[Rfam]
RNA sequence: AAAAAGUGGAGUCCAGACACCACAUAAACGGGGCGCAACUGAAAAGCCAAAUGAGUAAGACAGAU
Numbered sequence: 001a002a003a004a005a006g007u008g009g010a011g012u013c014c015a016g017a018c019a020c021c022a023c024a025u026a027a028a029c030g031g032g033g034c035g036c037a038a039c040u041g042a043a044a045a046g047c048c049a050a051a052u053g054a055g056u057a058a059g060a061c062a063g064a065u
Base pairs, nucleotide, nucleotide: 006023007022008021009020032048033047034046039059040058
Rfam assigns this 65-nucleotide RNA from Psychroflexus torquis to the family "DUF805 RNA". Its Rfam clan is "DUF805 clan". Rfam classes the family as a cis-regulatory element.